[Rfam]
RNA sequence: UCUAAGGGGAGAAACUCUGUCUACAUGUGCGGCCACACCAUGAGACAGUGCGUCCUCCCUCAGAC
Numbered sequence: 001u002c003u004a005a006g007g008g009g010a011g012a013a014a015c016u017c018u019g020u021c022u023a024c025a026u027g028u029g030c031g032g033c034c035a036c037a038c039c040a041u042g043a044g045a046c047a048g049u050g051c052g053u054c055c056u057c058c059c060u061c062a063g064a065c
Stems, first nucleotide, its partner, number of pairs: 002063002006058004011053001015050001017048006025041003
The record is a 65-nucleotide RNA sequence from Elysia chlorotica, which matches "mir-1994 microRNA precursor family" in Rfam. The organism belongs to Elysia, within Eukaryota.